This 114-nucleotide RNA from Corythaixoides concolor belongs to the Rfam family "Potassium channel RNA editing signal". A search with the family's covariance model found it, with a score of 95 bits. The family's RNA type in Rfam is cis-regulatory element.

RNA sequence: CUGGGCUACGGAGACAUGUAUCCCAUGACGUGGUCCGGGAUGUUGGUGGGGGCUCUCUGCGCCCUGGCGGGGGUCCUCACCAUCGCCAUGCCGGUCCCGGUCAUCGUUAACAAC
Number, nucleotide and partner (000 for none) at each position: 001c000002u113003g000004g111005g000006c000007u000008a107009c106010g105011g104012a000013g102014a101015c100016a000017u000018g097019u000020a095021u094022c000023c000024c000025a000026u000027g000028a000029c000030g000031u000032g000033g000034u000035c000036c000037g077038g076039g075040a074041u000042g000043u000044u000045g000046g000047u000048g000049g063050g062051g000052g000053c000054u000055c000056u000057c000058u000059g000060c000061g000062c050063c049064c000065u000066g000067g000068c000069g000070g000071g000072g000073g000074u040075c039076c038077u037078c000079a000080c000081c000082a000083u000084c000085g000086c000087c000088a000089u000090g000091c000092c000093g000094g021095u020096c000097c018098c000099g000100g015101u014102c013103a000104u011105c010106g009107u008108u000109a000110a000111c004112a000113a002114c000